[Rfam]
Nucleotides: 088
Base pairs, nucleotide, nucleotide: 008079011076015073016071017070019068020067022065023064025060026059027058029056031054032053
Number, partner (000 for none) and nucleotide at each position: 001000a002000c003000u004000a005000u006000c007000g008079a009000a010000c011076g012000a013000c014000c015073g016071g017070g018000u019068g020067c021000c022065a023064c024000g025060c026059u027058g028000u029056g030000c031054u032053c033000u034000c035000u036000c037000g038000g039000g040000u041000u042000u043000u044000g045000g046000a047000g048000c049000g050000a051000g052000u053032g054031a055000a056029c057000a058027c059026a060025g061000c062000u063000g064023g065022u066000g067020g068019u069000a070017u071016c072000u073015c074000a075000g076011u077000u078000g079008u080000u081000c082000c083000c084000u085000a086000g087000u088000u